[Rfam]
RNA sequence: AUCAUCCUGCCAUGUUCGUUACGACGACACCUUGUUUUGAACCAAUGCUGUUUCUUAGGGAGUCUCACAUUGCCGCGCGGCUGGCAUGCCUUCGAAAGGGGAAGUCAAAAGCAACGCUGCGGACACCCACCUGCGAGAGCGGGUUCAGAAACAAGCACGUCGAACGGCAUAGGCGGGUUUUUU
Number, nucleotide and partner (000 for none) at each position: 001a000002u000003c000004a179005u000006c177007c176008u175009g174010c173011c172012a170013u169014g168015u167016u000017c166018g165019u164020u000021a000022c000023g000024a000025c000026g000027a000028c000029a000030c000031c000032u000033u000034g152035u151036u150037u149038u147039g146040a145041a144042c143043c142044a000045a000046u000047g000048c000049u000050g000051u000052u000053u000054c000055u000056u000057a000058g128059g127060g126061a000062g124063u123064c122065u121066c000067a000068c000069a118070u000071u000072g117073c116074c000075g000076c000077g112078c111079g000080g000081c000082u000083g000084g105085c104086a000087u000088g000089c101090c100091u099092u000093c000094g000095a000096a000097a000098g000099g091100g090101g089102a000103a000104g085105u084106c000107a000108a000109a000110a000111g078112c077113a000114a000115c000116g073117c072118u069119g000120c000121g065122g064123a063124c062125a000126c060127c059128c058129a000130c000131c000132u000133g000134c000135g000136a000137g000138a000139g000140c000141g000142g043143g042144u041145u040146c039147a038148g000149a037150a036151a035152c034153a000154a000155g000156c000157a000158c000159g000160u000161c000162g000163a000164a019165c018166g017167g015168c014169a013170u012171a000172g011173g010174c009175g008176g007177g006178u000179u004180u000181u000182u000183u000